This 141-nucleotide RNA sequence from Metabacillus lacus belongs to the Rfam family "c-di-AMP riboswitch aptamer (ydaO/yuaA leader)". Rfam's curators write: This family represents a conserved RNA structure found upstream of the ydaO and yuaA genes in Bacillus subtilis and related genes in other bacteria. The ydaO/yuaA element is thought to act as a genetic 'off' switch for the ydaO and yuaA genes in its native state. Its family is annotated with cyclic-di-AMP binding and regulation of gene expression in the Gene Ontology.
[Rfam]
RNA sequence: AUUUCAUAGGUGCUUAAUCCCAACAGGGAGCGGGGGAACCAACAGCAUGCAUGUCAUGCAGGGGUGAAUCCAUUAGACUGGUAGGACUGCUCUUCGUCCGAAUCCGACAGCUAACCUCGUAAGCCAGGAGAGACUGCAGAA
Numbered sequence: 001a002u003u004u005c006a007u008a009g010g011u012g013c014u015u016a017a018u019c020c021c022a023a024c025a026g027g028g029a030g031c032g033g034g035g036g037a038a039c040c041a042a043c044a045g046c047a048u049g050c051a052u053g054u055c056a057u058g059c060a061g062g063g064g065u066g067a068a069u070c071c072a073u074u075a076g077a078c079u080g081g082u083a084g085g086a087c088u089g090c091u092c093u094u095c096g097u098c099c100g101a102a103u104c105c106g107a108c109a110g111c112u113a114a115c116c117u118c119g120u121a122a123g124c125c126a127g128g129a130g131a132g133a134c135u136g137c138a139g140a141a
Stems, first nucleotide, its partner, number of pairs: 012124003018029003030120006040061001062105003070081003084099004